[Rfam]
RNA sequence: CCGGCUCCGGUUCACGUCCUGUCCCAUGACACCACCGCAUCACGGGUGGCGUCCGGGAGUUCCUCAGGGCGACCCGGCGGCC
Dot-bracket structure: ..(((.((((....(((((((...........................................)))))))..))))..)))

L31-Actinobacteria ribosomal protein leader: an 82-nucleotide RNA sequence. Pairs were carried over by alignment from the consensus structure, which is taken from published work. It is one of the family's seed sequences.